[Rfam]
RNA sequence: AGAGGCGCAUGUGCCAUUUCUGCACACUCGGUAUAGAUGCGCGCACACGUCAGUAGAGGCGCGUGUGCCUUU
Numbered sequence: 001a002g003a004g005g006c007g008c009a010u011g012u013g014c015c016a017u018u019u020c021u022g023c024a025c026a027c028u029c030g031g032u033a034u035a036g037a038u039g040c041g042c043g044c045a046c047a048c049g050u051c052a053g054u055a056g057a058g059g060c061g062c063g064u065g066u067g068c069c070u071u072u
Base pairs, nucleotide, nucleotide: 002071003070004069005068006067007066008065009064010063011062012061013060014059015058017056018055020053021052022051025049030044031042032041
Dot-bracket structure: .((((((((((((((.((.(((..(....(((........)).)....).))).)).)))))))))))))).